[Rfam]
RNA sequence: CACCGAGUCCGAGGCCCCUGGGGAUCACCGGGGGCUGGUGCAAAAGGGA
Numbered sequence: 001c002a003c004c005g006a007g008u009c010c011g012a013g014g015c016c017c018c019u020g021g022g023g024a025u026c027a028c029c030g031g032g033g034g035c036u037g038g039u040g041c042a043a044a045a046g047g048g049a
Stems, first nucleotide, its partner, number of pairs: 014035008
Shown here is a 49-nucleotide sequence from Streptomyces sp. Wigar10, a member of the family "raiA-hairpin RNA". The family's RNA type in Rfam is small RNA. Lineage of the source: Bacteria > Actinomycetes > Kitasatosporales > Streptomycetaceae > Streptomyces.